[Rfam]
Whalefall-1 RNA: a 56-nucleotide RNA sequence from Balneola sp. EhC07.
RNA sequence: AAAUCUCCCUUCGAAGGGAGACAGAUCGAGUGCUUGCACGAGAUCAGAGGGAUGUU
Numbered sequence: 001a002a003a004u005c006u007c008c009c010u011u012c013g014a015a016g017g018g019a020g021a022c023a024g025a026u027c028g029a030g031u032g033c034u035u036g037c038a039c040g041a042g043a044u045c046a047g048a049g050g051g052a053u054g055u056u
Stems, first nucleotide, its partner, number of pairs: 004021007024045004030039003

The match comes from Rfam's covariance-model search (44 bits).
Pairs were carried over by alignment from the consensus structure, which is taken from published work.